[Rfam]
RNA: BsrF
Organism: Falsibacillus albus
RNA sequence: GCGAUGAGCUAUUUGUGUAAGUCGAUAGACUAAGCUUUCGAAGCUGACGCGGGAUGUGGCCUGCGGAAAACCUAUCGCCUCAAAAUUUUGCAAUGAAGGCGUCUGUCGGAUUACAGGCGUC
Numbered sequence: 001g002c003g004a005u006g007a008g009c010u011a012u013u014u015g016u017g018u019a020a021g022u023c024g025a026u027a028g029a030c031u032a033a034g035c036u037u038u039c040g041a042a043g044c045u046g047a048c049g050c051g052g053g054a055u056g057u058g059g060c061c062u063g064c065g066g067a068a069a070a071c072c073u074a075u076c077g078c079c080u081c082a083a084a085a086u087u088u089u090g091c092a093a094u095g096a097a098g099g100c101g102u103c104u105g106u107c108g109g110a111u112u113a114c115a116g117g118c119g120u121c
Stems, first nucleotide, its partner, number of pairs: 013083003017079001023077006031070001034044002048065002051062003098121009